[Rfam]
RNA sequence: GUGAAAGUGUUGCCAGGUGGUUAGGUGGAUUGUGUAUUUGCAUGCCAGGAAACAUAAACAUUUGGCAGCCAGGCCGGUAUUAAGUAAGCAGGGCAACAGCCCGGAUCAUGAAUAGUGGAGGCAGUUGUGGGAGUGCCAACGGUACAUACAGCUGACUUUCAU
Numbered sequence: 001g002u003g004a005a006a007g008u009g010u011u012g013c014c015a016g017g018u019g020g021u022u023a024g025g026u027g028g029a030u031u032g033u034g035u036a037u038u039u040g041c042a043u044g045c046c047a048g049g050a051a052a053c054a055u056a057a058a059c060a061u062u063u064g065g066c067a068g069c070c071a072g073g074c075c076g077g078u079a080u081u082a083a084g085u086a087a088g089c090a091g092g093g094c095a096a097c098a099g100c101c102c103g104g105a106u107c108a109u110g111a112a113u114a115g116u117g118g119a120g121g122c123a124g125u126u127g128u129g130g131g132a133g134u135g136c137c138a139a140c141g142g143u144a145c146a147u148a149c150a151g152c153u154g155a156c157u158u159u160c161a162u
Stems, first nucleotide, its partner, number of pairs: 001162007009069004016062004021057003024053001026051001030047001032045004074118003078114003084109002087106001091102004122154007133145004

The record is a 162-nucleotide sequence, which matches "Clostridiales-1 RNA" in Rfam.
The family's consensus secondary structure is taken from published work.
Rfam's curators put it in the seed alignment.